The family of this 183-nucleotide RNA from Cohnella candida is "glmS glucosamine-6-phosphate activated ribozyme aptamer". Gene Ontology terms of the family: catalytic activity and regulation of gene expression. By type it is a riboswitch. Pairs were carried over by alignment from the consensus structure, which is taken from published work. Rfam describes the family as follows. This entry contains a glucosamine-6-phosphate activated ribozyme that is found in the mRNA for GlmS. GlmS is an enzyme that uses fructose-6-phosphate and glutamine to generate glucosamine-6-phosphate. The ribozyme catalyses self cleavage of the glmS mRNA that is thought to regulate GlmS activity.
[Rfam]
RNA sequence: AGGCAACACUAAGCGCCAGAACUUGGCCGGUCAUGACACGGGAGAUUUUCGAUGACCGCAAGUUGACGAGGUGGAGGCGUUCGGGUUUUCGGCGGGGACCUCCCGGUUUCGCAUCGGAGCCGACAAAUCGGAAGACAAAACGCGGCGGGUGACCGUGCGUACAAUAUUCCGAUAUGAUGCAAC
Dot-bracket structure: ...................((((((.(.(..........................).)))))))........(((((...((((....))))......)))))((((((.......))))))....(((((((.......((((.(((....))))))).......)))))))..........
Numbered sequence: 001a002g003g004c005a006a007c008a009c010u011a012a013g014c015g016c017c018a019g020a021a022c023u024u025g026g027c028c029g030g031u032c033a034u035g036a037c038a039c040g041g042g043a044g045a046u047u048u049u050c051g052a053u054g055a056c057c058g059c060a061a062g063u064u065g066a067c068g069a070g071g072u073g074g075a076g077g078c079g080u081u082c083g084g085g086u087u088u089u090c091g092g093c094g095g096g097g098a099c100c101u102c103c104c105g106g107u108u109u110c111g112c113a114u115c116g117g118a119g120c121c122g123a124c125a126a127a128u129c130g131g132a133a134g135a136c137a138a139a140a141c142g143c144g145g146c147g148g149g150u151g152a153c154c155g156u157g158c159g160u161a162c163a164a165u166a167u168u169c170c171g172a173u174a175u176g177a178u179g180c181a182a183c
Stems, first nucleotide, its partner, number of pairs: 020064006027058001029056001073103005081092004104122006127173007141159004146155003